[Rfam]
GcvB RNA: a 205-nucleotide RNA sequence from Cedecea neteri. Rfam links the family to the GO terms mRNA binding and regulation of gene expression. It scores 182 bits against the family's covariance model. Rfam describes the family as follows. The gcvB gene encodes a small untranslated RNA involved in expression of the dipeptide and oligopeptide transport systems in Escherichia coli. Included several unknown homologues in alignment (Bateman A pers obs). It base-pairs with SorC. This interaction triggers the degradation of GcvB by RNase E, alleviating the GcvB-mediated mRNA repression of other amino acid-related transport and metabolic genes.
RNA sequence: ACUUCCUGAGUCGGAACGAAAAGUUGUCUGGAAUGCGUGUUCUGGAGGGCUUUUGGCUUACGGUUGUGAUGUUGUGUUGUUGUGUUUGCAAUUGGUCUGACAUUUCGGACCACGGUAGCUUAGCUACCCCUUUUCACUUCCUGUACAUUUACCCUGUCUGUCCAUAGUGAUUAAUGUAGCACCGCCGAAUGCGGUGCUUUUUUUU
Numbered sequence: 001a002c003u004u005c006c007u008g009a010g011u012c013g014g015a016a017c018g019a020a021a022a023g024u025u026g027u028c029u030g031g032a033a034u035g036c037g038u039g040u041u042c043u044g045g046a047g048g049g050c051u052u053u054u055g056g057c058u059u060a061c062g063g064u065u066g067u068g069a070u071g072u073u074g075u076g077u078u079g080u081u082g083u084g085u086u087u088g089c090a091a092u093u094g095g096u097c098u099g100a101c102a103u104u105u106c107g108g109a110c111c112a113c114g115g116u117a118g119c120u121u122a123g124c125u126a127c128c129c130c131u132u133u134u135c136a137c138u139u140c141c142u143g144u145a146c147a148u149u150u151a152c153c154c155u156g157u158c159u160g161u162c163c164a165u166a167g168u169g170a171u172u173a174a175u176g177u178a179g180c181a182c183c184g185c186c187g188a189a190u191g192c193g194g195u196g197c198u199u200u201u202u203u204u205u
Stems, first nucleotide, its partner, number of pairs: 009058004015054002021052005027046008093112008114128006145177005178198008